A member of the RNA family "Selenocysteine insertion sequence 1" from Oreochromis niloticus, 64 nucleotides long.
The base pairs follow the family's consensus structure, which is taken from published work.
Rfam's curators write: The incorporation of selenocysteine into a protein sequence is directed by an in-frame UGA codon (usually a stop codon) within the coding region of the mRNA. Selenoprotein mRNAs contain a conserved secondary structure in the 3' UTR that is required for the distinction of UGA stop from UGA selenocysteine. The selenocysteine insertion sequence (SECIS) is around 60 nt in length and adopts a hairpin structure which is sufficiently well-defined and conserved to act as a computational screen for selenoprotein genes.
The organism belongs to Oreochromis, within Eukaryota.
On this family, see Walczak et al., RNA 1996: "A novel RNA structural motif in the selenocysteine insertion element of eukaryotic selenoprotein mRNAs".
It scores 38 bits against the family's covariance model.
Rfam links the family to the GO term selenocysteine incorporation.
The family's RNA type in Rfam is cis-regulatory element.

[Rfam]
RNA sequence: GUGUGUUAAUGAUGGCCUGUCUUUAAACUCUAUAGAAGAAGCAGACCUGAUGCUUAAUGCUCAU
Numbered sequence: 001g002u003g004u005g006u007u008a009a010u011g012a013u014g015g016c017c018u019g020u021c022u023u024u025a026a027a028c029u030c031u032a033u034a035g036a037a038g039a040a041g042c043a044g045a046c047c048u049g050a051u052g053c054u055u056a057a058u059g060c061u062c063a064u
Stems, first nucleotide, its partner, number of pairs: 001064003005060001014047002017044004022039002029036002